RNA sequence: CGCUUUAUCGAGUAAUCGCUAGAGUGAUUUAUCAGAAGUCAGCAGACGGCAUAGUAGCCAAACGCCCAUCGUAAUGGAGGGGACACGGUGAAGGCC
Numbered sequence: 001c002g003c004u005u006u007a008u009c010g011a012g013u014a015a016u017c018g019c020u021a022g023a024g025u026g027a028u029u030u031a032u033c034a035g036a037a038g039u040c041a042g043c044a045g046a047c048g049g050c051a052u053a054g055u056a057g058c059c060a061a062a063c064g065c066c067c068a069u070c071g072u073a074a075u076g077g078a079g080g081g082g083a084c085a086c087g088g089u090g091a092a093g094g095c096c
Stems, first nucleotide, its partner, number of pairs: 001026002004023004009018003038047003048096003057089003065081003
A member of the RNA family "Group II catalytic intron D1-D4-1" from Serratia marcescens, 96 nucleotides long. Rfam describes the family as follows. Group II introns are found in rRNA, tRNA and mRNA of organelles in fungi, plants and protists, and also in mRNA in bacteria. The sequence is in the family's curated seed alignment.